[Rfam]
RNA sequence: AGUUCGGGCGCUGCACGGUGGGACGGGCGGCAAGUAUGGAACUCCAACCCUGUAUUCGCAGGCCGCGCCUCGGGGGCCCCGACCCGAGACGCG
Numbered sequence: 001a002g003u004u005c006g007g008g009c010g011c012u013g014c015a016c017g018g019u020g021g022g023a024c025g026g027g028c029g030g031c032a033a034g035u036a037u038g039g040a041a042c043u044c045c046a047a048c049c050c051u052g053u054a055u056u057c058g059c060a061g062g063c064c065g066c067g068c069c070u071c072g073g074g075g076g077c078c079c080c081g082a083c084c085c086g087a088g089a090c091g092c093g
Stems, first nucleotide, its partner, number of pairs: 001043005010031005016025002064093004070087005
Rhodo-rpoB RNA: a 93-nucleotide sequence from Paracoccus onubensis. By type it is a cis-regulatory element. The organism belongs to Paracoccus, within Bacteria.